The family of this 101-nucleotide sequence from Hydrogenophaga sp. RAC07 is "Guanidine-I riboswitch aptamer". The match comes from Rfam's covariance-model search (82 bits). This family represents a conserved RNA structure found upstream of the ykkC and yxkD genes in Bacillus subtilis and related genes in other bacteria.
RNA sequence: ACUCAGGUGCACUAGGGUUCCGACCGCGUUCGCGUGGUGUCUGGUCCGAGAGUGUGCCGGCCUCAUCGCAGGCUCCACGGAGGGACAAAAGCCCGGGAGAA
Numbered sequence: 001a002c003u004c005a006g007g008u009g010c011a012c013u014a015g016g017g018u019u020c021c022g023a024c025c026g027c028g029u030u031c032g033c034g035u036g037g038u039g040u041c042u043g044g045u046c047c048g049a050g051a052g053u054g055u056g057c058c059g060g061c062c063u064c065a066u067c068g069c070a071g072g073c074u075c076c077a078c079g080g081a082g083g084g085a086c087a088a089a090a091g092c093c094c095g096g097g098a099g100a101a
Stems, first nucleotide, its partner, number of pairs: 007057006015047002020044002022041001023038006059074005076096001078099001082094003